Rfam assigns this 113-nucleotide RNA from Protea cynaroides to the family "MIR394 microRNA precursor family". It scores 91 bits against the family's covariance model. On this family, see Jones-Rhoades and Bartel, Mol Cell 2004: "Computational identification of plant microRNAs and their targets, including a stress-induced miRNA".

RNA sequence: CUUACAGAGUUUAUUGGCAUUCUGUCCACCUCCACUUGAGGAUCUCUCUCUCUCUCUCUCUCUCUCUUUUCCUUUCAUUGGAGGUGGACAUCCUGCCAACUGAGCUCUGUUGG
Numbered sequence: 001c002u003u004a005c006a007g008a009g010u011u012u013a014u015u016g017g018c019a020u021u022c023u024g025u026c027c028a029c030c031u032c033c034a035c036u037u038g039a040g041g042a043u044c045u046c047u048c049u050c051u052c053u054c055u056c057u058c059u060c061u062c063u064c065u066c067u068u069u070u071c072c073u074u075u076c077a078u079u080g081g082a083g084g085u086g087g088a089c090a091u092c093c094u095g096c097c098a099a100c101u102g103a104g105c106u107c108u109g110u111u112g113g
Stems, first nucleotide, its partner, number of pairs: 011103001014099006023090011